[Rfam]
RNA sequence: GUGCCAAAGAAUAACUUAUUCUGUGGCUACUUUGAGUUACGAUAGUUACUAUGUUAAUUCACGAGACUACAGUAACUCAUUACUAAGUGAUUUACCAUAACAUUAUGGUAAAUAUCACCGUGAGUUAUAGUAACACGAGUAUCGUAAAGCAUAUUCAUGUUAUCGUAAAUUGGUACAAAUAUUAUCGUAAAUUAAGGUGGCUAUAGAAUAAGUUAUUCUAUGGCCA
Numbered sequence: 001g002u003g004c005c006a007a008a009g010a011a012u013a014a015c016u017u018a019u020u021c022u023g024u025g026g027c028u029a030c031u032u033u034g035a036g037u038u039a040c041g042a043u044a045g046u047u048a049c050u051a052u053g054u055u056a057a058u059u060c061a062c063g064a065g066a067c068u069a070c071a072g073u074a075a076c077u078c079a080u081u082a083c084u085a086a087g088u089g090a091u092u093u094a095c096c097a098u099a100a101c102a103u104u105a106u107g108g109u110a111a112a113u114a115u116c117a118c119c120g121u122g123a124g125u126u127a128u129a130g131u132a133a134c135a136c137g138a139g140u141a142u143c144g145u146a147a148a149g150c151a152u153a154u155u156c157a158u159g160u161u162a163u164c165g166u167a168a169a170u171u172g173g174u175a176c177a178a179a180u181a182u183u184a185u186c187g188u189a190a191a192u193u194a195a196g197g198u199g200g201c202u203a204u205a206g207a208a209u210a211a212g213u214u215a216u217u218c219u220a221u222g223g224c225c226a
Stems, first nucleotide, its partner, number of pairs: 003224004008219026037190010050177001052175008061166002065164002069160003072156001074154001080147004087142003091138002093132003097128005103122001108116001
Shown here is a 226-nucleotide RNA sequence from Miscanthus lutarioriparius, a member of the family "MIR6217 microRNA precursor family". Its family is annotated with RISC complex and miRNA-mediated post-transcriptional gene silencing in the Gene Ontology.